[Rfam]
RNA sequence: CAAGACGUGGUUCGUAACCAUCCCACGAUAAAAAACUAAGGAGAA
Number, nucleotide and partner (000 for none) at each position: 001c000002a000003a000004g000005a000006c027007g026008u025009g024010g023011u000012u000013c000014g000015u038016a037017a000018c000019c000020a000021u000022c000023c010024c009025a008026c007027g006028a000029u000030a000031a000032a000033a000034a000035a000036c000037u016038a015039a000040g000041g000042a000043g000044a000045a000
This 45-nucleotide sequence from Sporosarcina sp. Marseille-Q4063 belongs to the Rfam family "PreQ1 (pre queuosine) riboswitch aptamer". It scores 58 bits against the family's covariance model. This family is a bacterial riboswitch that binds to the metabolite preQ1, an intermediate in the biosynthesis of the modified nucleoside queuosine from GTP. One example of this riboswitch is located in the leader of the Bacillus subtilis ykvJKLM (queCDEF) operon which encodes four genes necessary for queuosine production. Pairs were carried over by alignment from the consensus structure. Rfam links the family to the GO term queuosine biosynthetic process.